[Rfam]
RNA: Flavo-1 RNA
Organism: Flavobacterium sp. A45
RNA sequence: AAUUUGCAUGAGGGAUGGAAAUGGCAUCCUUUUCUUUUCCUUCUUUCGGGAAAAGAAAAGAUACAAUGAACAGCCCGACCCUUG
Numbered sequence: 001a002a003u004u005u006g007c008a009u010g011a012g013g014g015a016u017g018g019a020a021a022u023g024g025c026a027u028c029c030u031u032u033u034c035u036u037u038u039c040c041u042u043c044u045u046u047c048g049g050g051a052a053a054a055g056a057a058a059a060g061a062u063a064c065a066a067u068g069a070a071c072a073g074c075c076c077g078a079c080c081c082u083u084g
Stems, first nucleotide, its partner, number of pairs: 012076003016072002021067002026062003032057010